[Rfam]
Nucleotides: 074
Base pairs, nucleotide, nucleotide: 012041013040014039018074019073020072021071022070024068025037026036027035046063047062048061050059052057
Number, partner (000 for none) and nucleotide at each position: 001000g002000g003000c004000g005000c006000a007000g008000a009000a010000c011000a012041g013040g014039c015000c016000a017000c018074a019073g020072c021071a022070g023000a024068a025037g026036u027035g028000c029000u030000c031000a032000u033000g034000g035027c036026g037025c038000a039014g040013c041012c042000c043000u044000g045000u046063c047062g048061g049000a050059u051000u052057c053000c054000a055000g056000c057052g058000c059050a060000c061048c062047u063046g064000c065000a066000a067000a068024u069000c070022c071021u072020g073019c074018u

The family of this 74-nucleotide RNA from Alligator sinensis is "Mammalian CPEB3 ribozyme". NCBI's taxonomy places the organism under Eukaryota, Sauria, Archosauria, Alligatorinae, Alligator. From the family's description: The mammalian CPEB3 ribozyme is a self cleaving RNA located in the second intron of the CPEB3 gene which belongs to a family of genes regulating messenger RNA polyadenylation.